[Rfam]
Source information:
This 53-nucleotide RNA sequence from Rhodovulum adriaticum belongs to the Rfam family "ffh sRNA". Lineage of the source: Bacteria > Pseudomonadati > Pseudomonadota > Rhodobacterales > Rhodovulum. It is annotated as a small RNA.

RNA sequence: GCGACCCGGGAUCGCCCCCCGUCAGCGAGGUUUCGCCCACGGGGGCGCUCAGC
Numbered sequence: 001g002c003g004a005c006c007c008g009g010g011a012u013c014g015c016c017c018c019c020c021g022u023c024a025g026c027g028a029g030g031u032u033u034c035g036c037c038c039a040c041g042g043g044g045g046c047g048c049u050c051a052g053c
Base pairs, nucleotide, nucleotide: 016045017044018043019042020041021040022039025036026035027034028033